Rfam assigns this 451-nucleotide part of an RNA from uncultured marine crenarchaeote KM3-153-F8 to the family "Archaeal large subunit ribosomal RNA". Taxonomically the source falls in Nitrosopumilales (Archaea, Thermoproteati, Nitrososphaerota, Nitrososphaeria). Rfam 15.1 lists 2,955 matches to the family in 1,139 species.
[Rfam]
RNA sequence: CCCACCGAAGUAGAUCUCAGUCUAGCCUAGGCAGACUUUGUUGGCGUUGUAGAGCACUGAUAAGGAAGUUUUGGAACCGAAAGGUUCUCCUUCCUUUUCAAACUCCGAAGGUGCCAACAAGUGAGAAGCCUGGAGACGGGUUUAUGUGGGGUAAGCCUCAUAACCGAGAGGGGAGCAACCCAGACUAAAGUUAAGGUCCCCAAAUGUCAACUAAGUGUCAAACGAAAGAGUGUCUUCAAGCUAAGACAGCAGGAAGGUAGGCUUAGAAGCAGCCAUCCUUCAAAGAAUGUGUAACAACUCACCUGUCGAGCUCGUUGGCCUCGAAAAUGGACGGGGCUCAAGUUGACUACCGAUACUUUGGACCACGAAUAAUAUCGUGUGUGGUAGGUGGGCGUAGGGAGUGGGUAGAAGUAGGGUCGUGAGAUCCUGUGGACCGCUUUCUAUUGCAGAU
Numbered sequence: 001c002c003c004a005c006c007g008a009a010g011u012a013g014a015u016c017u018c019a020g021u022c023u024a025g026c027c028u029a030g031g032c033a034g035a036c037u038u039u040g041u042u043g044g045c046g047u048u049g050u051a052g053a054g055c056a057c058u059g060a061u062a063a064g065g066a067a068g069u070u071u072u073g074g075a076a077c078c079g080a081a082a083g084g085u086u087c088u089c090c091u092u093c094c095u096u097u098u099c100a101a102a103c104u105c106c107g108a109a110g111g112u113g114c115c116a117a118c119a120a121g122u123g124a125g126a127a128g129c130c131u132g133g134a135g136a137c138g139g140g141u142u143u144a145u146g147u148g149g150g151g152u153a154a155g156c157c158u159c160a161u162a163a164c165c166g167a168g169a170g171g172g173g174a175g176c177a178a179c180c181c182a183g184a185c186u187a188a189a190g191u192u193a194a195g196g197u198c199c200c201c202a203a204a205u206g207u208c209a210a211c212u213a214a215g216u217g218u219c220a221a222a223c224g225a226a227a228g229a230g231u232g233u234c235u236u237c238a239a240g241c242u243a244a245g246a247c248a249g250c251a252g253g254a255a256g257g258u259a260g261g262c263u264u265a266g267a268a269g270c271a272g273c274c275a276u277c278c279u280u281c282a283a284a285g286a287a288u289g290u291g292u293a294a295c296a297a298c299u300c301a302c303c304u305g306u307c308g309a310g311c312u313c314g315u316u317g318g319c320c321u322c323g324a325a326a327a328u329g330g331a332c333g334g335g336g337c338u339c340a341a342g343u344u345g346a347c348u349a350c351c352g353a354u355a356c357u358u359u360g361g362a363c364c365a366c367g368a369a370u371a372a373u374a375u376c377g378u379g380u381g382u383g384g385u386a387g388g389u390g391g392g393c394g395u396a397g398g399g400a401g402u403g404g405g406u407a408g409a410a411g412u413a414g415g416g417u418c419g420u421g422a423g424a425u426c427c428u429g430u431g432g433a434c435c436g437c438u439u440u441c442u443a444u445u446g447c448a449g450a451u
Base pairs, nucleotide, nucleotide: 001392002391003390004389005388006387011024012023013022014021015020026135027133028132029131030130031129032128036121037120038119040118041117042116043115044114045113046112047111052106053104054103059099060098062096063095064094065093066092067091068090073088074087075086076085077084078083139165140164142163143162144161145160146159148158149157170181171180172179185361186360187359188358189357190356191355195351196350197349204348206347207346208345209344210343211342228322229321230320232319233318234317237314239312240311241310249306250305251304252303253302255279256278257277260274261273262272280284285300289298290297362382363381364379365378366377367376368375393446395443396442397441398440399439400438401437402436403435404434411430412429413428414427415426416425417424418423
It is one of the family's seed sequences. Pairs were carried over by alignment from the consensus structure, which is taken from published work.